RNA sequence: GCCGGACUCAGUAACGCGGGCCUGUAACCUAAGUGGGGGCUAAAAAGUAGUGGGACAUUGUCUCGGCCCAUUUAAUCGGAUCUAGCAUGGCUAUCUUCUGGCCCGCCCGUUCCAAGCCGAGAGUAGAACCUUGUGGUUUGGGCGAAGGCCCGGACUACAUGGCUCAUAGCGUGGAGGGCAACGCGUGAGGCUGGCUUCACAGAGCAGCGACUACCUCCCUCUCCUAGCAGUGGAAGGAUAACGGGUCGGUGCCAUCUGGGUCCAACAUGGUUUGAUGGGCGGUUACUAAUCGGACCACUACUUUU
Numbered sequence: 001g002c003c004g005g006a007c008u009c010a011g012u013a014a015c016g017c018g019g020g021c022c023u024g025u026a027a028c029c030u031a032a033g034u035g036g037g038g039g040c041u042a043a044a045a046a047g048u049a050g051u052g053g054g055a056c057a058u059u060g061u062c063u064c065g066g067c068c069c070a071u072u073u074a075a076u077c078g079g080a081u082c083u084a085g086c087a088u089g090g091c092u093a094u095c096u097u098c099u100g101g102c103c104c105g106c107c108c109g110u111u112c113c114a115a116g117c118c119g120a121g122a123g124u125a126g127a128a129c130c131u132u133g134u135g136g137u138u139u140g141g142g143c144g145a146a147g148g149c150c151c152g153g154a155c156u157a158c159a160u161g162g163c164u165c166a167u168a169g170c171g172u173g174g175a176g177g178g179c180a181a182c183g184c185g186u187g188a189g190g191c192u193g194g195c196u197u198c199a200c201a202g203a204g205c206a207g208c209g210a211c212u213a214c215c216u217c218c219c220u221c222u223c224c225u226a227g228c229a230g231u232g233g234a235a236g237g238a239u240a241a242c243g244g245g246u247c248g249g250u251g252c253c254a255u256c257u258g259g260g261u262c263c264a265a266c267a268u269g270g271u272u273u274g275a276u277g278g279g280c281g282g283u284u285a286c287u288a289a290u291c292g293g294a295c296c297a298c299u300a301c302u303u304u305u
Base pairs, nucleotide, nucleotide: 001040002039003038004023005022007020008019009018028037029036030035043305044304045303046302047301048300049299050298051297052296053295056292058289059288060287063282064281065280068278069277070276071275072274074272075271076270077269078263079262080261081260082259083258084257085256087255088254089253090252092251093250098249099248100247101246102245103244104243105242107237108236110235111234112233113232114231116228117227119225121223122222123221126165127164129162130161132159133158134157135156136155137154138153139152140151141150142149143148173218174217175216176215177214184209185208186207191202192201193200
The family of this 305-nucleotide sequence from Ziziphus jujuba is "Plant signal recognition particle RNA". A search with the family's covariance model found it, with a score of 245 bits. Gene Ontology terms of the family: signal recognition particle, endoplasmic reticulum targeting and SRP-dependent cotranslational protein targeting to membrane, signal sequence recognition. The family's RNA type in Rfam is non-coding RNA gene.